[Rfam]
This 353-nucleotide RNA sequence from Dyella tabacisoli belongs to the Rfam family "transfer-messenger RNA". Rfam links the family to the GO term RNA catabolic process. The match comes from Rfam's covariance-model search (199 bits). By type it is a non-coding RNA gene.
RNA sequence: GGGGGUGUCAUGGCUUCGACGGGGGUAGUGAGAUAGUUUGGUGCAUGCCGAGGGGGCAGCUUUCCUCGUUAAACCAGCCGCAAACUUAUAGUUGCCAACGACGACAACUACGCUCUAGCCGCUUAAGGCUUAGCCCCGAACCCACUUGUGCCUGUGCUCGUGGAUGUAGGGUCACUAUCACGGGAUCGCCGAAGAUUGCCGCCUGUCGGUCUUAGGUCAAAUCAAGCGGGCUGGUCCUUCGAUGCGCUUCGCACAUCGUGCUGUCGCGGGAUGAGAUUCAACGGUGAGCUAAGCAUGUAGUACCGGGCGUCAAACGCCUUCGGACGCGGGUUCGACUCCCGCCACCUCCACCA
Numbered sequence: 001g002g003g004g005g006u007g008u009c010a011u012g013g014c015u016u017c018g019a020c021g022g023g024g025g026u027a028g029u030g031a032g033a034u035a036g037u038u039u040g041g042u043g044c045a046u047g048c049c050g051a052g053g054g055g056g057c058a059g060c061u062u063u064c065c066u067c068g069u070u071a072a073a074c075c076a077g078c079c080g081c082a083a084a085c086u087u088a089u090a091g092u093u094g095c096c097a098a099c100g101a102c103g104a105c106a107a108c109u110a111c112g113c114u115c116u117a118g119c120c121g122c123u124u125a126a127g128g129c130u131u132a133g134c135c136c137c138g139a140a141c142c143c144a145c146u147u148g149u150g151c152c153u154g155u156g157c158u159c160g161u162g163g164a165u166g167u168a169g170g171g172u173c174a175c176u177a178u179c180a181c182g183g184g185a186u187c188g189c190c191g192a193a194g195a196u197u198g199c200c201g202c203c204u205g206u207c208g209g210u211c212u213u214a215g216g217u218c219a220a221a222u223c224a225a226g227c228g229g230g231c232u233g234g235u236c237c238u239u240c241g242a243u244g245c246g247c248u249u250c251g252c253a254c255a256u257c258g259u260g261c262u263g264u265c266g267c268g269g270g271a272u273g274a275g276a277u278u279c280a281a282c283g284g285u286g287a288g289c290u291a292a293g294c295a296u297g298u299a300g301u302a303c304c305g306g307g308c309g310u311c312a313a314a315c316g317c318c319u320u321c322g323g324a325c326g327c328g329g330g331u332u333c334g335a336c337u338c339c340c341g342c343c344a345c346c347u348c349c350a351c352c353a
Stems, first nucleotide, its partner, number of pairs: 001349007020322007029313001032311003038306006044297005049068005056081002059078003115133003118129003135171003139167001142163004148157001151184006188217003192213005201231005234272005240266004245260003255285003326342005